[Rfam]
RNA sequence: GUGGGCGGAAGCUCAUUGUAGAGGUCACAUGCUGAGUGCUCGUCACUCCACCAAUCACCUCGGGGAAGGUCUGAGACAAGAGCCAAUAGUUACCCUUGCUGGGUAUCACCUGAUUCGGGUGAGCGAGUGAACAGUAAAAUGGAUUGCUAUGAGCAGUUGUUGCAGGAGAUACCGUGUGGUGCGAGUCAUUCCGGUGGAUGCGACGCUCAAUGGCAUUGGAAUCACCCGCGGCUGGCCAAUGAGUGCGAUGUAUGAGGUGGAGCACAGCUCCAGAACCCAAUUCAGACUACUCUCCCCCCAC
Numbered sequence: 001g002u003g004g005g006c007g008g009a010a011g012c013u014c015a016u017u018g019u020a021g022a023g024g025u026c027a028c029a030u031g032c033u034g035a036g037u038g039c040u041c042g043u044c045a046c047u048c049c050a051c052c053a054a055u056c057a058c059c060u061c062g063g064g065g066a067a068g069g070u071c072u073g074a075g076a077c078a079a080g081a082g083c084c085a086a087u088a089g090u091u092a093c094c095c096u097u098g099c100u101g102g103g104u105a106u107c108a109c110c111u112g113a114u115u116c117g118g119g120u121g122a123g124c125g126a127g128u129g130a131a132c133a134g135u136a137a138a139a140u141g142g143a144u145u146g147c148u149a150u151g152a153g154c155a156g157u158u159g160u161u162g163c164a165g166g167a168g169a170u171a172c173c174g175u176g177u178g179g180u181g182c183g184a185g186u187c188a189u190u191c192c193g194g195u196g197g198a199u200g201c202g203a204c205g206c207u208c209a210a211u212g213g214c215a216u217u218g219g220a221a222u223c224a225c226c227c228g229c230g231g232c233u234g235g236c237c238a239a240u241g242a243g244u245g246c247g248a249u250g251u252a253u254g255a256g257g258u259g260g261a262g263c264a265c266a267g268c269u270c271c272a273g274a275a276c277c278c279a280a281u282u283c284a285g286a287c288u289a290c291u292c293u294c295c296c297c298c299c300a301c
Base pairs, nucleotide, nucleotide: 001301002300003299004298007295008294009293012256013255014254015253016252021061022060023059024058034048035047036046037045038044071285072284073283074282075281081233082232083231084230091105092104093103094102095101106122107121108120109119110118111117123229124228125227127225128224129223258272259271260270261269262268263267